This 71-nucleotide sequence from Chaetops frenatus belongs to the Rfam family "Small nucleolar RNA U2-19".
RNA sequence: AAAUAGCCAAAUCUGACCACCAGAAGAUAAAACAAUCUUCCAGGUGUCAUGAUUUGUAUGCAGUUCUGAGG
Numbered sequence: 001a002a003a004u005a006g007c008c009a010a011a012u013c014u015g016a017c018c019a020c021c022a023g024a025a026g027a028u029a030a031a032a033c034a035a036u037c038u039u040c041c042a043g044g045u046g047u048c049a050u051g052a053u054u055u056g057u058a059u060g061c062a063g064u065u066c067u068g069a070g071g
Stems, first nucleotide, its partner, number of pairs: 018046004025038004
On this family, see Tycowski et al., Curr Biol 2004: "Guide RNAs with 5' Caps and Novel Box C/D snoRNA-like Domains for Modification of snRNAs in Metazoa". Lineage of the source: Eukaryota > Opisthokonta > Bilateria > Dipnotetrapodomorpha > Chaetops. Rfam links the family to the GO terms nucleolus and RNA processing. By type it is a C/D-box small nucleolar RNA.